[Rfam]
RNA sequence: UUUAUAGAAAAAGCGCCAGCACGUGUUUUAACCACGUGGACGAGGAGAAGGAGGUCACCGGUAAUUUUUCAAUCGGUGAGUUAUCGAGUUUUCGGCGGAAACCUUCCGGUUGUCACGACCGUCAGGGUCCUACAAAGACUCGCAGGCAACUGCGGUACAAAAGGGAUCUGAGUGAAUUU
Numbered sequence: 001u002u003u004a005u006a007g008a009a010a011a012a013g014c015g016c017c018a019g020c021a022c023g024u025g026u027u028u029u030a031a032c033c034a035c036g037u038g039g040a041c042g043a044g045g046a047g048a049a050g051g052a053g054g055u056c057a058c059c060g061g062u063a064a065u066u067u068u069u070c071a072a073u074c075g076g077u078g079a080g081u082u083a084u085c086g087a088g089u090u091u092u093c094g095g096c097g098g099a100a101a102c103c104u105u106c107c108g109g110u111u112g113u114c115a116c117g118a119c120c121g122u123c124a125g126g127g128u129c130c131u132a133c134a135a136a137g138a139c140u141c142g143c144a145g146g147c148a149a150c151u152g153c154g155g156u157a158c159a160a161a162a163g164g165g166a167u168c169u170g171a172g173u174g175a176a177u178u179u
Stems, first nucleotide, its partner, number of pairs: 020038006027031001047106005058095004107121006125169007140155006